The family of this 220-nucleotide RNA from Nannocystis exedens is "Group II catalytic intron D1-D4-6". A reference for the family is Bonen and Vogel (2001), "The ins and outs of group II introns", Trends Genet. Rfam 15.1 lists 1,617 matches to the family in 661 species.
[Rfam]
RNA sequence: CUUGACCCCGCCCGGCCGAGGCCGAGCUCUAGCCGGAACCGAGUGUUGCGCGAGACCCGGAAACGGAAACGCGAAGCGUACACAGCAAGCACAUGGGCCGUGUAUUGAGCCCCGAAAAGGUUGAGGUGGAGGAGGCCGACGCCCUCACGACGGCGGAAGGCAGCACUCCCCGGGCUGAAGGCUCGGUUGUUCCCGGGAGCUCCUCCGGGGUCUUAGACCA
Dot-bracket structure: ...........(((((...((.......)).)))))...(..((((((((((....(((....)))...))))...)).)))).).....................(.((((((..............(((((((((..((((........))))...)))....(((((.(((.(((........))).))).))))))))))))))))))........